Background: This 143-nucleotide RNA from Hibiscus syriacus belongs to the Rfam family "U4 spliceosomal RNA". The source organism's lineage runs through Eukaryota, Spermatophyta, rosids, Malvales and Hibiscus. The base pairs follow the family's consensus structure, which is taken from published work. U4 small nuclear RNA (U4 snRNA) is a component of the major U2-dependent spliceosome.
[Rfam]
RNA sequence: AUCUUUGUGCUUGGGGCAAUGACGCAGCUAGUGAGGUAAUAACCGAGGCGCGUCUAUUGCCUGGUUGAAAACUAUUUCCAAACCCCCUCUCUGGUCUUAGUUCACCCUUGGCCUUUGAGAAUUUCUAGGACUCCCAUCGGGGU
Numbered sequence: 001a002u003c004u005u006u007g008u009g010c011u012u013g014g015g016g017c018a019a020u021g022a023c024g025c026a027g028c029u030a031g032u033g034a035g036g037u038a039a040u041a042a043c044c045g046a047g048g049c050g051c052g053u054c055u056a057u058u059g060c061c062u063g064g065u066u067g068a069a070a071a072c073u074a075u076u077u078c079c080a081a082a083c084c085c086c087c088u089c090u091c092u093g094g095u096c097u098u099a100g101u102u103c104a105c106c107c108u109u110g111g112c113c114u115u116u117g118a119g120a121a122u123u124u125c126u127a128g129g130a131c132u133c134c135c136a137u138c139g140g141g142g143u
Base pairs, nucleotide, nucleotide: 021054022053023052024051025050027049028048029047035044036043037042087119088118089117093114094113096111097110099108100107133142134141135140